[Rfam]
RNA sequence: GCACUGAUGACACUCACUGGUGUGGGUAGCGGGCUUCAAACCCGCUGGCGAUUCACUUCGCAGCGGUUCGAUUCCGCCUUCGGUGC
Numbered sequence: 001g002c003a004c005u006g007a008u009g010a011c012a013c014u015c016a017c018u019g020g021u022g023u024g025g026g027u028a029g030c031g032g033g034c035u036u037c038a039a040a041c042c043c044g045c046u047g048g049c050g051a052u053u054c055a056c057u058u059c060g061c062a063g064c065g066g067u068u069c070g071a072u073u074c075c076g077c078c079u080u081c082g083g084u085g086c
Base pairs, nucleotide, nucleotide: 001086002085003084004083005082006081007080009078012027013026014025015024016023017022028046029045030044031043032042033041048061049060050059051058063077064076065075066074
Shown here is an 86-nucleotide sequence from Thamnocephalis sphaerospora, a member of the family "Selenocysteine transfer RNA". NCBI's taxonomy places the organism under Eukaryota, Zoopagomycota, Zoopagomycotina, Sigmoideomycetaceae, Thamnocephalis. Pairs were carried over by alignment from the consensus structure, which is taken from published work.